RNA: mir-19 microRNA precursor family
Organism: Anguilla anguilla
RNA sequence: GUUCACGGCGAGUUUUGCAGGAUUGCAUCCAGUUUGUGAAAAUCCCCGCUGUGCAAAUCCAUGCAAAACUCGUUGUGCCU
Numbered sequence: 001g002u003u004c005a006c007g008g009c010g011a012g013u014u015u016u017g018c019a020g021g022a023u024u025g026c027a028u029c030c031a032g033u034u035u036g037u038g039a040a041a042a043u044c045c046c047c048g049c050u051g052u053g054c055a056a057a058u059c060c061a062u063g064c065a066a067a068a069c070u071c072g073u074u075g076u077g078c079c080u
Base pairs, nucleotide, nucleotide: 004077005076006075007074008073009072010071011070012069013068014067015066016065017064018063019062020060021059023056024055025054026053027052028051031050032049033048